RNA: Metazoan signal recognition particle RNA
RNA sequence: ACUGGGAGUGGCGGCGAACUCCUGUAAUUCAGCUUCUUUGAAAGUCGGUUUACGUGGAUGAUUUGAGGUGGGGAGCACUGCGACGGUCGGUUCCGCGUUGAACGGACAUCCGCGCUAAGCUUGUCGUCAAUAUGGGCUCCGUGGGGUAGCCUUCGGAGUCCAGGUUGGCUAAGGAGAGGCGAACCGGGCCAGAGGGGAAACCCAGCAGCCAAAAGUCUCCGCGGUGAGCAGUAGCGGGACAUUGCCUGCGAGCAGAGCUCCCGUGCGCAGCCCCACCAAUACAAUCAGACCGUAAGCCAA
Dot-bracket structure: (((((((((........))))))....(((.........)))))).((((((((....(((((...(((((((....(((((((((..(..((.((.(....(((.((.((.(((((.(((((((((((((.(((((((((.(((....))).))))))))).)))).(...)..(((((......(((....(((....)))....)))....))))).)))))))))..)))))))....)).))).).)).)).)..)))).)))))))))))).....)))))...))))))))..